[Rfam]
RNA sequence: AGAGUCAGCGCAGGCAGUUGCGGGCUGUGGGCACUGCCUAUCAGCCUGAGGAAAGUCCGGACUCCCGAAAGACCAAACCUGCUGGAUAACGCCCAGUGCGAGCGAUCGUGAGGAUAGUGCCACAGAAAAAUACCGCCAAGAGCAGUUUGAGUGACUCAUUCAAAACGUUUUUGGUAAGGGUGCAAAGGUGCGGUAAGAGCGCACCAGCAGCAUCGAGAGGUGCUGGCUCGGUAAACCCCGGUUGGGAGCAAGGUCAAAGAACAACGGUUGGUCUUUUUCCCGUUCUGCGUGAUAGCGGUGGAUAACUGCCGUUAUAGAGAGCCGCUUGAGGCAUUUGGUAACAGAUGUCCCAGAUAGAUAACUGCCCUUUGAGUGCGCUCAAAGAACAGAACCCGGCUUAUGUCUGGCUCUUCUC
Numbered sequence: 001a002g003a004g005u006c007a008g009c010g011c012a013g014g015c016a017g018u019u020g021c022g023g024g025c026u027g028u029g030g031g032c033a034c035u036g037c038c039u040a041u042c043a044g045c046c047u048g049a050g051g052a053a054a055g056u057c058c059g060g061a062c063u064c065c066c067g068a069a070a071g072a073c074c075a076a077a078c079c080u081g082c083u084g085g086a087u088a089a090c091g092c093c094c095a096g097u098g099c100g101a102g103c104g105a106u107c108g109u110g111a112g113g114a115u116a117g118u119g120c121c122a123c124a125g126a127a128a129a130a131u132a133c134c135g136c137c138a139a140g141a142g143c144a145g146u147u148u149g150a151g152u153g154a155c156u157c158a159u160u161c162a163a164a165a166c167g168u169u170u171u172u173g174g175u176a177a178g179g180g181u182g183c184a185a186a187g188g189u190g191c192g193g194u195a196a197g198a199g200c201g202c203a204c205c206a207g208c209a210g211c212a213u214c215g216a217g218a219g220g221u222g223c224u225g226g227c228u229c230g231g232u233a234a235a236c237c238c239c240g241g242u243u244g245g246g247a248g249c250a251a252g253g254u255c256a257a258a259g260a261a262c263a264a265c266g267g268u269u270g271g272u273c274u275u276u277u278u279c280c281c282g283u284u285c286u287g288c289g290u291g292a293u294a295g296c297g298g299u300g301g302a303u304a305a306c307u308g309c310c311g312u313u314a315u316a317g318a319g320a321g322c323c324g325c326u327u328g329a330g331g332c333a334u335u336u337g338g339u340a341a342c343a344g345a346u347g348u349c350c351c352a353g354a355u356a357g358a359u360a361a362c363u364g365c366c367c368u369u370u371g372a373g374u375g376c377g378c379u380c381a382a383a384g385a386a387c388a389g390a391a392c393c394c395g396g397c398u399u400a401u402g403u404c405u406g407g408c409u410c411u412u413c414u415c
Stems, first nucleotide, its partner, number of pairs: 001411008010403003013366007021048007053399003057396004062248004072303001074301001076243003080240002082096004097111001098109004112238002117236002119232003133179002135175009187205006207227001208225007252323003263313004295309005330349008

The record is a 415-nucleotide RNA sequence from Phormidesmis priestleyi, which matches "Bacterial RNase P class A" in Rfam.
Its family is annotated with ribonuclease P activity, dimeric ribonuclease P complex and tRNA processing in the Gene Ontology.
The base pairs follow the family's consensus structure, which is taken from published work.
Rfam classes the family as a ribozyme.
A search with the family's covariance model found it, with a score of 254 bits.